A member of the RNA family "Photosynthesis regulatory RNA1" from Picosynechococcus sp. PCC 7002, 89 nucleotides long.

[Rfam]
RNA sequence: GCAAAGUACCAUGCGCCGUCUUGACAUUGAGUUUCUCCUCUCAUACAGCAAGCUCAAACUGACCAGCCCUGAAGCUUAGGCUGGUUUUU
Numbered sequence: 001g002c003a004a005a006g007u008a009c010c011a012u013g014c015g016c017c018g019u020c021u022u023g024a025c026a027u028u029g030a031g032u033u034u035c036u037c038c039u040c041u042c043a044u045a046c047a048g049c050a051a052g053c054u055c056a057a058a059c060u061g062a063c064c065a066g067c068c069c070u071g072a073a074g075c076u077u078a079g080g081c082u083g084g085u086u087u088u089u
Stems, first nucleotide, its partner, number of pairs: 045085001067083001068080005
Annotation
The family's RNA type in Rfam is small RNA. About the family: Formerly known as Syr1 discovered in Synechocystis sp PCC 6803, is a regulatory factor controlling photosynthetic functions. PsrR1 interacts with the ribosome binding regions of several photosynthesis-related mRNAs. In particular, psaL mRNA is processed by RNase E only in the presence of PsrR1. NCBI's taxonomy places the organism under Bacteria, Bacillati, Oscillatoriophycideae, Geminocystaceae, Picosynechococcus. It is one of the family's seed sequences. Rfam 15.1 lists 92 matches to the family in 57 species. Gene Ontology terms of the family: regulation of photosynthesis and regulation of translation.